[Rfam]
This 170-nucleotide sequence from Hujiaoplasma nucleasis belongs to the Rfam family "Lysine riboswitch aptamer". Its family is annotated with lysine biosynthetic process in the Gene Ontology. The match comes from Rfam's covariance-model search (85 bits).
RNA sequence: UCAAACAUUAGAGGUAGCGAUGCAGAAGAGUACUAUGAGGAGUCGGCAGACGAAGAUACAUAGGAAAGGCAACCAUCGCCGAAUAUAAAAUAUAGGCAUAUAUUUUAUAUGGGGUUACAAGAAAUACUUGUAACACUCCUAUCUUUUUAGAUAGAGGCGCUAAAAUAAAU
Numbered sequence: 001u002c003a004a005a006c007a008u009u010a011g012a013g014g015u016a017g018c019g020a021u022g023c024a025g026a027a028g029a030g031u032a033c034u035a036u037g038a039g040g041a042g043u044c045g046g047c048a049g050a051c052g053a054a055g056a057u058a059c060a061u062a063g064g065a066a067a068g069g070c071a072a073c074c075a076u077c078g079c080c081g082a083a084u085a086u087a088a089a090a091u092a093u094a095g096g097c098a099u100a101u102a103u104u105u106u107a108u109a110u111g112g113g114g115u116u117a118c119a120a121g122a123a124a125u126a127c128u129u130g131u132a133a134c135a136c137u138c139c140u141a142u143c144u145u146u147u148u149a150g151a152u153a154g155a156g157g158c159g160c161u162a163a164a165a166u167a168a169a170u
Stems, first nucleotide, its partner, number of pairs: 008163004017079006025070001033063005083110012111137002114134008139154006